[Rfam]
RNA sequence: AGCUGCCGUAAUGGUCAUAGCAGAAGCAGUCACGUUGCAGCCCGGUCAGAUUCUCACAAAUCUGUGAAUUCUGCU
Numbered sequence: 001a002g003c004u005g006c007c008g009u010a011a012u013g014g015u016c017a018u019a020g021c022a023g024a025a026g027c028a029g030u031c032a033c034g035u036u037g038c039a040g041c042c043c044g045g046u047c048a049g050a051u052u053c054u055c056a057c058a059a060a061u062c063u064g065u066g067a068a069u070u071c072u073g074c075u
Stems, first nucleotide, its partner, number of pairs: 013042003019075007026038003047064006
The record is a 75-nucleotide RNA sequence from Alligator sinensis, which matches "Mammalian CPEB3 ribozyme" in Rfam. The base pairs follow the family's consensus structure, which is taken from published work. NCBI's taxonomy places the organism under Eukaryota, Craniata, Gnathostomata, Dipnotetrapodomorpha, Alligator.